RNA sequence: CCGUUAAAUGAUGACGUAACAAACAAAAUGUCAUGUCAUCAUGUUCAAUCACGGACACGUCAUUGAAGGUGGUGAUAUGACAAUUGGGUGUCCAUGACAAAACGUGAUGAUGUGAUAUUCCGUCUGUCACGUCAUUACUUAACAGAA
Dot-bracket structure: (.(((((.(((((((((.(((.((..(((((((((((((((((((...(((..((((((((((........)))))...........)))))..)))...)))))))))))))))))))..)).))).))))))))).))))).)..

The family of this 147-nucleotide RNA sequence from Glycine max is "MIR4371 microRNA precursor family". Its family is annotated with miRNA-mediated post-transcriptional gene silencing and RISC complex in the Gene Ontology. Taxonomically the source falls in Glycine subgen. Soja (Eukaryota, Tracheophyta, Fabaceae, Glycine).